[Rfam]
RNA sequence: UUGUUGUGAUGUUGGCACGCUUGCAAAAGUGCCUUCUAAUGCUCCCAUGCUUCGUAUAACAACUCACCAUCAUGCUGAUCAAAACUAGCGAUUUUCCUAUGGGCUG
Numbered sequence: 001u002u003g004u005u006g007u008g009a010u011g012u013u014g015g016c017a018c019g020c021u022u023g024c025a026a027a028a029g030u031g032c033c034u035u036c037u038a039a040u041g042c043u044c045c046c047a048u049g050c051u052u053c054g055u056a057u058a059a060c061a062a063c064u065c066a067c068c069a070u071c072a073u074g075c076u077g078a079u080c081a082a083a084a085c086u087a088g089c090g091a092u093u094u095u096c097c098u099a100u101g102g103g104c105u106g
Base pairs, nucleotide, nucleotide: 001106003104004103005101006100057074058073
A member of the RNA family "Plant small nucleolar RNA R71" from Phtheirospermum japonicum, 106 nucleotides long. It is annotated as a C/D-box small nucleolar RNA. The match comes from Rfam's covariance-model search (41 bits). Lineage of the source: Eukaryota > Streptophyta > Embryophyta > asterids > Phtheirospermum. The literature on the family includes a 2003 paper in Trends Plant Sci by Brown et al., "Plant snoRNAs: functional evolution and new modes of gene expression".